[Rfam]
RNA sequence: AUCAUUUCUCGGCCUUUUGGCUAAGAUCCAAUGUAGUAUCUGUUCUUAUCAGUUAGUAUCUGAUACAUCCUCCAUCUGAGGACAGUAUAUUAAAUGGAUUUUUGGAGCAGGGAAUUGGAAUAGGAGCUUGCUCGGCCCACUCCAUGCAUUGACCUGGAAUUGCAGUAUCUCCCGGAGCAGUGUAUCACCU
Number, nucleotide and partner (000 for none) at each position: 001a000002u000003c000004a000005u000006u000007u026008c025009u024010c000011g022012g021013c020014c019015u000016u000017u000018u000019g014020g013021c012022u011023a000024a009025g008026a007027u000028c000029c000030a000031a000032u000033g000034u000035a000036g000037u000038a000039u000040c000041u000042g000043u000044u000045c000046u000047u065048a064049u063050c062051a061052g060053u000054u000055a000056g000057u000058a000059u000060c052061u051062g050063a049064u048065a047066c000067a000068u082069c081070c080071u079072c078073c000074a000075u000076c000077u000078g072079a071080g070081g069082a068083c000084a000085g000086u000087a000088u000089a000090u000091u000092a000093a000094a000095u000096g000097g000098a000099u000100u000101u000102u000103u000104g000105g000106a000107g000108c000109a000110g000111g143112g142113a141114a000115u139116u000117g137118g136119a000120a000121u000122a000123g000124g133125a132126g131127c000128u000129u000130g000131c126132u125133c124134g000135g000136c118137c117138c000139a115140c000141u113142c112143c111144a000145u000146g183147c182148a181149u180150u179151g178152a000153c175154c174155u000156g172157g171158a170159a000160u000161u000162g000163c000164a000165g000166u000167a000168u000169c000170u158171c157172c156173c000174g154175g153176a000177g000178c151179a150180g149181u148182g147183u146184a000185u000186c000187a000188c000189c000190u000
RNA: U2 spliceosomal RNA